[Rfam]
RNA sequence: GUGAGUUAGAUCUCAUAUCCUUCCGCAAAAUGGAAAUGAUAUGUAAUCUAGCUUACAG
Numbered sequence: 001g002u003g004a005g006u007u008a009g010a011u012c013u014c015a016u017a018u019c020c021u022u023c024c025g026c027a028a029a030a031u032g033g034a035a036a037u038g039a040u041a042u043g044u045a046a047u048c049u050a051g052c053u054u055a056c057a058g
Stems, first nucleotide, its partner, number of pairs: 001056011014043006021035005
A member of the RNA family "mir-62 microRNA precursor family" from Caenorhabditis elegans, 58 nucleotides long. The sequence is in the family's curated seed alignment. The organism belongs to Caenorhabditis, within Eukaryota.